[Rfam]
RNA sequence: AGAAAUCAAGCUUCAGGCCAUAACAGAAGCAAUCGUGAUGUGGCCAUGCCAGAUUUCAACAAAUCUGUGAACUUUGCC
Numbered sequence: 001a002g003a004a005a006u007c008a009a010g011c012u013u014c015a016g017g018c019c020a021u022a023a024c025a026g027a028a029g030c031a032a033u034c035g036u037g038a039u040g041u042g043g044c045c046a047u048g049c050c051a052g053a054u055u056u057c058a059a060c061a062a063a064u065c066u067g068u069g070a071a072c073u074u075u076g077c078c
Base pairs, nucleotide, nucleotide: 013046016045017044018043019042024076025075026074027073029041030040031039050067051066052065053064054063055062056061
RNA: Mammalian CPEB3 ribozyme